RNA: SAM riboswitch aptamer (S box leader)
RNA sequence: UUCUUAUCAAGAGCAGGCAGAGGGACAAGCCCGAUGAAGCCCGGCAACCGACUUUUUAAGCACGGUGCUAAUUCUUGCAGCUGACGCUGAGAGAUAAGGA
Numbered sequence: 001u002u003c004u005u006a007u008c009a010a011g012a013g014c015a016g017g018c019a020g021a022g023g024g025a026c027a028a029g030c031c032c033g034a035u036g037a038a039g040c041c042c043g044g045c046a047a048c049c050g051a052c053u054u055u056u057u058a059a060g061c062a063c064g065g066u067g068c069u070a071a072u073u074c075u076u077g078c079a080g081c082u083g084a085c086g087c088u089g090a091g092a093g094a095u096a097a098g099g100a
Base pairs, nucleotide, nucleotide: 001100002099003098004097005096006095007094008093013042016041017040018039022032023031024030026077027076028075029074043069044068045067046066048065049064050061052060053059073092078089079088080087081086